[Rfam]
RNA sequence: AACCUUGGUUGAAACAAGAUUUGUCAUGAGAAGUCAGCAGAAGUCAUAGUACCAUGAAAACCUAGGUUUCAUGGGAAGGAC
Numbered sequence: 001a002a003c004c005u006u007g008g009u010u011g012a013a014a015c016a017a018g019a020u021u022u023g024u025c026a027u028g029a030g031a032a033g034u035c036a037g038c039a040g041a042a043g044u045c046a047u048a049g050u051a052c053c054a055u056g057a058a059a060a061c062c063u064a065g066g067u068u069u070c071a072u073g074g075g076a077a078g079g080a081c
Stems, first nucleotide, its partner, number of pairs: 001020001004018004009013001034041002043081003052074006
Annotation
Rfam assigns this 81-nucleotide RNA sequence from Anaerosalibacter massiliensis to the family "Group II catalytic intron D1-D4-1". Rfam links the family to the GO term Group II intron splicing. Group II introns are found in rRNA, tRNA and mRNA of organelles in fungi, plants and protists, and also in mRNA in bacteria. The organism belongs to Anaerosalibacter, within Bacteria.